Shown here is a 48-nucleotide sequence, a member of the family "L31-Actinobacteria ribosomal protein leader". Rfam classes the family as a cis-regulatory leader. The family's consensus secondary structure is taken from published work. The family is grouped with related families in Rfam's "Ribosomal Protein L31 Leader clan".

RNA sequence: CUGGUUCCGGUUCACGUCGCUGCGCCCGCGCAGCACGACCCGGCGACC
Numbered sequence: 001c002u003g004g005u006u007c008c009g010g011u012u013c014a015c016g017u018c019g020c021u022g023c024g025c026c027c028g029c030g031c032a033g034c035a036c037g038a039c040c041c042g043g044c045g046a047c048c
Base pairs, nucleotide, nucleotide: 003048004047005046007043008042009041010040015037016036017035019034020033021032022031023030